Shown here is a 167-nucleotide sequence from Desulfosporosinus metallidurans, a member of the family "M-box riboswitch aptamer (ykoK leader)".
A search with the family's covariance model found it, with a score of 154 bits.
The organism belongs to Desulfosporosinus, within Bacteria.
From the family's description: M-box riboswitch, also know as ykoK leader is described as a metaloregulatory RNA that sense divalent metals and function as a genetic control element of genes related to divalent metal transport in bacteria.
[Rfam]
RNA sequence: UCUUAUCUCUGUUAGGUGAGGCUCCUGCAUAGACACAGGCCACUGCCCAGAAAUGUCGAGAGACGCCAAUUGGGUGGAACAGGUAUUACCGGCAUAAGGUUCUACUUAAUGUGGCUGAGAAAAACUCUACGCUAUGCAGUGCUAAAGCUCAACGAGUAGGGAGGUCC
Numbered sequence: 001u002c003u004u005a006u007c008u009c010u011g012u013u014a015g016g017u018g019a020g021g022c023u024c025c026u027g028c029a030u031a032g033a034c035a036c037a038g039g040c041c042a043c044u045g046c047c048c049a050g051a052a053a054u055g056u057c058g059a060g061a062g063a064c065g066c067c068a069a070u071u072g073g074g075u076g077g078a079a080c081a082g083g084u085a086u087u088a089c090c091g092g093c094a095u096a097a098g099g100u101u102c103u104a105c106u107u108a109a110u111g112u113g114g115c116u117g118a119g120a121a122a123a124a125c126u127c128u129a130c131g132c133u134a135u136g137c138a139g140u141g142c143u144a145a146a147g148c149u150c151a152a153c154g155a156g157u158a159g160g161g162a163g164g165u166c167c
Stems, first nucleotide, its partner, number of pairs: 006162005011153002013097001015149003020143003025139008039115005045075005054065004082106004088100003117127003